[Rfam]
RNA sequence: GGCUAUCCUGCAAGCCUACGAGAGCAGGACCACAGGUGAUAGCAACCACCUAAAACGCUCA
Numbered sequence: 001g002g003c004u005a006u007c008c009u010g011c012a013a014g015c016c017u018a019c020g021a022g023a024g025c026a027g028g029a030c031c032a033c034a035g036g037u038g039a040u041a042g043c044a045a046c047c048a049c050c051u052a053a054a055a056c057g058c059u060c061a
Base pairs, nucleotide, nucleotide: 001016002015003014004013008027009026010025011024035050036049037048038047
GP20-b RNA: a 61-nucleotide RNA. The family's RNA type in Rfam is cis-regulatory element. It is one of the family's seed sequences.